Rfam assigns this 459-nucleotide sequence from Corynebacterium urealyticum to the family "Bacterial RNase P class A". About the family: Ribonuclease P (RNase P) is a ubiquitous endoribonuclease, found in archaea, bacteria and eukarya as well as chloroplasts and mitochondria. Its Rfam clan is "RNaseP clan". The family's consensus secondary structure is taken from published work. By type it is a ribozyme. It is one of the family's seed sequences.

[Rfam]
RNA sequence: CGAGGCGGCCGGGUGGCUGCGGCGCGGUGGAACCACCGGCCGGUGUUAUGCCGGCGGGUCAGGCCCCGUGUCGAGGAAAGUCCGGACUCCACAGAGCACAGUGGUUGCUAACGGCAACCCAGGGUGACCUGCGGGCAAGUGCAACAGAAAGUAGACCGCCCGCCCACCGUUUUUCGCGGUGUGCGGCGGGUGAGGGUGAAAGGGUGCGGUAAGAGCGCACCAGCGUGGCAGGCGACUGUCGCGGCUAGGUAAACCCCACUGGGAGCAAGGUCAAGGAGCCGCACGGCCCCGCCCGUCGCAGGGCGGGGCGGGCGGCGUUGUCUGAGGGCUGCUCGCCCGAUGAAGGACAGGUGGACUGCUUGAGGCGCCCAGCAAUGGUGCGUCCAGAUGGAUGGUCACCUCGUGCCACCCCUCGUGGGUGGCAUCAGACAGAAUCCGGCUUAGAGGCCGCCUCGACAC
Numbered sequence: 001c002g003a004g005g006c007g008g009c010c011g012g013g014u015g016g017c018u019g020c021g022g023c024g025c026g027g028u029g030g031a032a033c034c035a036c037c038g039g040c041c042g043g044u045g046u047u048a049u050g051c052c053g054g055c056g057g058g059u060c061a062g063g064c065c066c067c068g069u070g071u072c073g074a075g076g077a078a079a080g081u082c083c084g085g086a087c088u089c090c091a092c093a094g095a096g097c098a099c100a101g102u103g104g105u106u107g108c109u110a111a112c113g114g115c116a117a118c119c120c121a122g123g124g125u126g127a128c129c130u131g132c133g134g135g136c137a138a139g140u141g142c143a144a145c146a147g148a149a150a151g152u153a154g155a156c157c158g159c160c161c162g163c164c165c166a167c168c169g170u171u172u173u174u175c176g177c178g179g180u181g182u183g184c185g186g187c188g189g190g191u192g193a194g195g196g197u198g199a200a201a202g203g204g205u206g207c208g209g210u211a212a213g214a215g216c217g218c219a220c221c222a223g224c225g226u227g228g229c230a231g232g233c234g235a236c237u238g239u240c241g242c243g244g245c246u247a248g249g250u251a252a253a254c255c256c257c258a259c260u261g262g263g264a265g266c267a268a269g270g271u272c273a274a275g276g277a278g279c280c281g282c283a284c285g286g287c288c289c290c291g292c293c294c295g296u297c298g299c300a301g302g303g304c305g306g307g308g309c310g311g312g313c314g315g316c317g318u319u320g321u322c323u324g325a326g327g328g329c330u331g332c333u334c335g336c337c338c339g340a341u342g343a344a345g346g347a348c349a350g351g352u353g354g355a356c357u358g359c360u361u362g363a364g365g366c367g368c369c370c371a372g373c374a375a376u377g378g379u380g381c382g383u384c385c386a387g388a389u390g391g392a393u394g395g396u397c398a399c400c401u402c403g404u405g406c407c408a409c410c411c412c413u414c415g416u417g418g419g420u421g422g423c424a425u426c427a428g429a430c431a432g433a434a435u436c437c438g439g440c441u442u443a444g445a446g447g448c449c450g451c452c453u454c455g456a457c458a459c
Stems, first nucleotide, its partner, number of pairs: 001455010012400007020073008078442003082439005087265004094334004099261005104118005119133001120131004134256002139254002141250002156195002158191007203221006223245001224243008269357004279346002281341001326338004364384005369378003